Shown here is a 120-nucleotide sequence from Caenorhabditis bovis, a member of the family "Caenorhabditis snoRNA ceN86". The family's RNA type in Rfam is C/D-box small nucleolar RNA. Its family is annotated with nucleolus and RNA processing in the Gene Ontology. The base pairs follow the family's consensus structure. A search with the family's covariance model found it, with a score of 43 bits. Taxonomically the source falls in Caenorhabditis (Eukaryota, Eumetazoa, Bilateria, Rhabditoidea).
[Rfam]
RNA sequence: GCACAUGUGUUCAUGGGAUUUGAUGACUUUCGCCAAAUCCCCGUAAAUUGUGCAAUACUGAAUUGUUUUAUAUUCCCGCUCUGAUCCAUGUAUCCUAGCGAUGAUGAAAACAAAACAAUA
Numbered sequence: 001g002c003a004c005a006u007g008u009g010u011u012c013a014u015g016g017g018a019u020u021u022g023a024u025g026a027c028u029u030u031c032g033c034c035a036a037a038u039c040c041c042c043g044u045a046a047a048u049u050g051u052g053c054a055a056u057a058c059u060g061a062a063u064u065g066u067u068u069u070a071u072a073u074u075c076c077c078g079c080u081c082u083g084a085u086c087c088a089u090g091u092a093u094c095c096u097a098g099c100g101a102u103g104a105u106g107a108a109a110a111c112a113a114a115a116c117a118a119u120a
Base pairs, nucleotide, nucleotide: 003051004050005049013044014043015042016041017040021035022034024032025031026030063113064112065111067109068108071106072105073104074103077100078099079098080097083094084093085092